[Rfam]
RNA sequence: UUGCCAGUGUAAGUAUGUCCCAUGCAAUAUUUAGGACAUAUUUAUGCUAAAA
Numbered sequence: 001u002u003g004c005c006a007g008u009g010u011a012a013g014u015a016u017g018u019c020c021c022a023u024g025c026a027a028u029a030u031u032u033a034g035g036a037c038a039u040a041u042u043u044a045u046g047c048u049a050a051a052a
Stems, first nucleotide, its partner, number of pairs: 006048007014040003018036003022031001

A member of the RNA family "mir-1302 microRNA precursor family" from Diceros bicornis, 52 nucleotides long.
The literature on the family includes a 2008 paper in Genome Res by Morin et al., "Application of massively parallel sequencing to microRNA profiling and discovery in human embryonic stem cells".
Lineage of the source: Eukaryota > Deuterostomia > Craniata > Vertebrata > Diceros bicornis.